Notes
A member of the RNA family "MIR1428 microRNA precursor family" from Oryza sativa, 114 nucleotides long. Rfam 15.1 lists 96 matches to the family in 9 species. NCBI's taxonomy places the organism under Eukaryota, Embryophyta, Euphyllophyta, Poaceae, Oryza sativa. For this family Rfam cites "Identification of novel and candidate miRNAs in rice by high throughput sequencing" (Sunkar et al., BMC Plant Biol, 2008).
[Rfam]
RNA sequence: GCGCUUGGCAAAUUCACAGGCCCUAUCUUGUGGUAUGAACUGAGAACGCGAUGAUUUAUGGUGCGUAUUGGGGGCCGGCUUACCAUAAGAUAAUGUCGUGAAUUCGCCAAGCAU
Dot-bracket structure: ..(((((((.((((((..(((..((((((((((((.(..((.((.(.(((...........))).).)).))......).))))))))))))..))).)))))).)))))))..